[Rfam]
RNA sequence: UUCUUAUCAAGAGAGGUUGAGGGAAUGGCCCGAUGAAGCCUCAGCAACCUUCAAUGCUUUUACGCAUUGAAAAGGUGCUAAGUCCUGCAAGUUAUGGGAUCAUAACUUGAAAGAUAAGAA
Numbered sequence: 001u002u003c004u005u006a007u008c009a010a011g012a013g014a015g016g017u018u019g020a021g022g023g024a025a026u027g028g029c030c031c032g033a034u035g036a037a038g039c040c041u042c043a044g045c046a047a048c049c050u051u052c053a054a055u056g057c058u059u060u061u062a063c064g065c066a067u068u069g070a071a072a073a074g075g076u077g078c079u080a081a082g083u084c085c086u087g088c089a090a091g092u093u094a095u096g097g098g099a100u101c102a103u104a105a106c107u108u109g110a111a112a113g114a115u116a117a118g119a120a
Stems, first nucleotide, its partner, number of pairs: 001120008013042005021031003027085002043079004048075002050071007083112001088109008
Overview
The record is a 120-nucleotide RNA from Heyndrickxia coagulans, which matches "SAM riboswitch aptamer (S box leader)" in Rfam. Rfam links the family to the GO term regulation of gene expression.